[Rfam]
A member of the RNA family "mir-3192 microRNA precursor family" from Homo sapiens, 77 nucleotides long. The family's consensus secondary structure was predicted with RNAalifold. NCBI's taxonomy places the organism under Eukaryota, Bilateria, Craniata, Vertebrata, Homo. The family has 2 seed sequences and 18 matches in Rfam 15.1. It is one of the family's seed sequences.
RNA sequence: GGAAGGGAUUCUGGGAGGUUGUAGCAGUGGAAAAAGUUCUUUUCUUCCUCUGAUCGCCCUCUCAGCUCUUUCCUUCU
Numbered sequence: 001g002g003a004a005g006g007g008a009u010u011c012u013g014g015g016a017g018g019u020u021g022u023a024g025c026a027g028u029g030g031a032a033a034a035a036g037u038u039c040u041u042u043u044c045u046u047c048c049u050c051u052g053a054u055c056g057c058c059c060u061c062u063c064a065g066c067u068c069u070u071u072c073c074u075u076c077u
Stems, first nucleotide, its partner, number of pairs: 001077008011065008020056002025052003029048004034043003